Background: This 85-nucleotide RNA from Denticeps clupeoides belongs to the Rfam family "mir-184 microRNA precursor family". A search with the family's covariance model found it, with a score of 79 bits. On this family, see Chen et al., Genes Dev 2005: "The developmental miRNA profiles of zebrafish as determined by small RNA cloning". Gene Ontology terms of the family: gene silencing by miRNA and RISC complex. Taxonomically the source falls in Denticeps (Eukaryota, Opisthokonta, Gnathostomata, Clupeiformes).
RNA sequence: UCGUUCACAUCUCCUUAUCACUUUUCCAGCCCAGCUAACGAUUCUGCAUUCGUUGGACGGAGAACUGAUAAGGGCAUGUGCCCGA
Numbered sequence: 001u002c003g004u005u006c007a008c009a010u011c012u013c014c015u016u017a018u019c020a021c022u023u024u025u026c027c028a029g030c031c032c033a034g035c036u037a038a039c040g041a042u043u044c045u046g047c048a049u050u051c052g053u054u055g056g057a058c059g060g061a062g063a064a065c066u067g068a069u070a071a072g073g074g075c076a077u078g079u080g081c082c083c084g085a
Stems, first nucleotide, its partner, number of pairs: 012074009022064006030056002